Shown here is a 220-nucleotide sequence from Streptomycetaceae bacterium MP113-05, a member of the family "Streptomyces sRNA 4677". The organism belongs to Streptomycetaceae, within Bacteria. On this family, see Hindra et al., PLoS One 2014: "Complex intra-operonic dynamics mediated by a small RNA in Streptomyces coelicolor". Rfam describes the family as follows. Located in the intergenic region between anti-sigma factor SCO4677 gene and a putative regulatory protein gene SCO4676. scr4677 expression requires the SCO4677 activity and scr4677 sRNA itself seem to affect the levels of the SCO4676-associated transcripts.

RNA sequence: CGUCCCGGUGGGGCACGACACCUAUAAGAGAACUGAGAAAAAACCAACCCCACCCAACCCCGACCCCAACUACCCCAGUCACACGUAUGGGUGACGGUGCGUCCGAAAGGCGGAUAGGUGGGGUACGGUCGGUCGUAACAACCUCACACAACCAGACGACCCCCGGCAGGACGGCAAUCCUGACGAGGGCCUGACCACCCAGGAAGAAGAGACCUUCCCG
Number, nucleotide and partner (000 for none) at each position: 001c000002g000003u000004c000005c000006c000007g199008g198009u197010g196011g000012g066013g065014c000015a000016c000017g000018a000019c000020a000021c000022c000023u000024a000025u000026a000027a000028g000029a000030g000031a000032a000033c000034u000035g000036a000037g000038a000039a000040a000041a000042a000043a000044c000045c000046a000047a000048c000049c000050c000051c000052a000053c000054c000055c000056a000057a000058c000059c000060c000061c000062g000063a000064c000065c013066c012067c000068a000069a000070c000071u000072a000073c000074c000075c000076c000077a000078g000079u094080c093081a092082c091083a000084c089085g000086u000087a000088u000089g084090g000091g082092u081093g080094a079095c000096g000097g000098u000099g000100c000101g000102u000103c132104c131105g130106a129107a000108a000109g000110g000111c000112g000113g000114a000115u000116a000117g000118g000119u000120g000121g000122g000123g000124u000125a000126c000127g000128g000129u106130c105131g104132g103133u000134c000135g000136u000137a000138a000139c000140a000141a000142c000143c000144u000145c000146a000147c000148a000149c000150a000151a000152c000153c000154a000155g000156a000157c000158g191159a000160c189161c188162c187163c000164c185165g184166g000167c000168a181169g180170g179171a178172c000173g000174g000175c000176a000177a000178u171179c170180c169181u168182g000183a000184c165185g164186a000187g162188g161189g160190c000191c158192u000193g000194a000195c000196c010197a009198c008199c007200c000201a000202g218203g217204a216205a215206g214207a000208a000209g000210a000211g000212a000213c000214c206215u205216u204217c203218c202219c000220g000